[Rfam]
RNA: Small nucleolar RNA SNORD97
Organism: Naja naja
RNA sequence: AUGCCCAGUGAUUAUAACAAGACGCGUUAUUACGAGGAUCAGCACUGGAGCUCCCCUUCUACCUUCCUGCUGUUCACUCCCCCAAAGUUAUCUAUCUUUACCUUUAUUCCUCUUGCUUCUCUCCCCCUUCUUGGAGUUUCACUCCUCUUCCUCCUUCUUGGGAGUUUCCAGUGUCCUAUGAGCAAGAUUAUGAGAUAUGAGGGCAU
Number, nucleotide and partner (000 for none) at each position: 001a206002u205003g204004c203005c202006c201007a000008g000009u000010g000011a000012u000013u000014a000015u000016a000017a000018c000019a000020a000021g000022a000023c000024g000025c000026g000027u000028u000029a000030u000031u000032a000033c000034g000035a120036g119037g118038a117039u000040c000041a000042g000043c000044a000045c000046u000047g000048g000049a000050g000051c000052u000053c000054c000055c000056c000057u000058u000059c000060u000061a000062c000063c000064u000065u000066c000067c000068u000069g000070c000071u000072g000073u000074u000075c000076a000077c000078u000079c000080c000081c000082c000083c000084a000085a000086a000087g000088u000089u000090a000091u000092c000093u000094a000095u000096c000097u000098u000099u000100a000101c000102c000103u000104u000105u000106a000107u000108u000109c000110c000111u000112c000113u000114u000115g000116c000117u038118u037119c036120u035121c000122u000123c000124c000125c000126c000127c000128u000129u000130c000131u000132u000133g000134g000135a000136g000137u000138u000139u000140c000141a000142c000143u000144c000145c000146u000147c000148u000149u000150c000151c000152u000153c000154c000155u000156u000157c000158u000159u000160g000161g000162g000163a000164g000165u000166u000167u000168c000169c000170a000171g000172u000173g000174u000175c000176c000177u000178a000179u000180g000181a000182g000183c000184a000185a000186g000187a000188u000189u000190a000191u000192g000193a000194g000195a000196u000197a000198u000199g000200a000201g006202g005203g004204c003205a002206u001